[Rfam]
RNA sequence: UUUUUAGUAUAAGUAUGUCCCAUAUAAUAUCUGGGAUAUAUUUUUGCUAAAA
Numbered sequence: 001u002u003u004u005u006a007g008u009a010u011a012a013g014u015a016u017g018u019c020c021c022a023u024a025u026a027a028u029a030u031c032u033g034g035g036a037u038a039u040a041u042u043u044u045u046g047c048u049a050a051a052a
Stems, first nucleotide, its partner, number of pairs: 006048004011043002014040003018036004